This 94-nucleotide RNA from Carnegiea gigantea belongs to the Rfam family "MIR6288 microRNA precursor family". Gene Ontology terms of the family: miRNA-mediated post-transcriptional gene silencing and RISC complex.

[Rfam]
RNA sequence: AUAUAAGUAGUCACUUCGAUCCUUUUAAGCCAUACUCGGAGUGUUACAUUACACUCCGAGUAUGGCUUAAAAGGAUCGAAGUGACUACUUAUAU
Number, nucleotide and partner (000 for none) at each position: 001a000002u093003a092004u091005a090006a089007g088008u087009a086010g085011u084012c083013a082014c081015u080016u079017c078018g077019a076020u075021c074022c073023u072024u071025u070026u069027a068028a067029g066030c065031c064032a063033u062034a061035c060036u059037c058038g057039g056040a055041g054042u000043g000044u000045u000046a000047c000048a000049u000050u000051a000052c000053a000054c041055u040056c039057c038058g037059a036060g035061u034062a033063u032064g031065g030066c029067u028068u027069a026070a025071a024072a023073g022074g021075a020076u019077c018078g017079a016080a015081g014082u013083g012084a011085c010086u009087a008088c007089u006090u005091a004092u003093a002094u000